[Rfam]
RNA: Editing element of GABA-3 exon 9
Organism: Scleropages formosus
RNA sequence: AAGGUGUCCUACACCACGGCCAUGGACUGGUUUAUUGCUGUGUGCUUUGCAUUC
Number, nucleotide and partner (000 for none) at each position: 001a000002a053003g052004g000005u000006g000007u000008c049009c000010u000011a046012c000013a000014c044015c042016a041017c040018g039019g038020c037021c000022a035023u034024g033025g032026a031027c000028u000029g000030g000031u026032u025033u024034a023035u022036u000037g020038c019039u018040g017041u016042g015043u000044g014045c000046u011047u000048u000049g008050c000051a000052u003053u002054c000